[Rfam]
RNA sequence: AUAACAAGUGCUAUUUUAAUAGCCUGAUGGUCAUAUUUUGCUUUCCGAGUGUGCCUCUAAUGAGGCACUUUUUUUAUUUC
Numbered sequence: 001a002u003a004a005c006a007a008g009u010g011c012u013a014u015u016u017u018a019a020u021a022g023c024c025u026g027a028u029g030g031u032c033a034u035a036u037u038u039u040g041c042u043u044u045c046c047g048a049g050u051g052u053g054c055c056u057c058u059a060a061u062g063a064g065g066c067a068c069u070u071u072u073u074u075u076a077u078u079u080c
Base pairs, nucleotide, nucleotide: 001075003073004072006070007069008068021042022041023040026037027036028035029034052067053066054065055064056063057062
A member of the RNA family "Aggregatibacter sRNA 20" from Avibacterium volantium, 80 nucleotides long. Validated by RT-PCR and Northern blot. A reference for the family is Oogai et al. (2017), "Small RNA repertoires and their intraspecies variation in Aggregatibacter actinomycetemcomitans", DNA Res.